The family of this 108-nucleotide RNA from Amycolatopsis sp. CA-230715 is "mraW RNA".
A search with the family's covariance model found it, with a score of 64 bits.
Taxonomically the source falls in Amycolatopsis (Bacteria, Actinomycetes, Pseudonocardiales, Pseudonocardiaceae).
RNA sequence: GAGUGCGGAUGUCGUGAGGCCUCUGUCCGCUCAAAGGCCCUGGUGCACCUUCCCCGGCACCAGGUUCUCAGCGGGCGGGCGGGGACCUGACGGCAUCCGCUCUGUCCA
Numbered sequence: 001g002a003g004u005g006c007g008g009a010u011g012u013c014g015u016g017a018g019g020c021c022u023c024u025g026u027c028c029g030c031u032c033a034a035a036g037g038c039c040c041u042g043g044u045g046c047a048c049c050u051u052c053c054c055c056g057g058c059a060c061c062a063g064g065u066u067c068u069c070a071g072c073g074g075g076c077g078g079g080c081g082g083g084g085a086c087c088u089g090a091c092g093g094c095a096u097c098c099g100c101u102c103u104g105u106c107c108a
Stems, first nucleotide, its partner, number of pairs: 010095006018087002021084012035068003039064008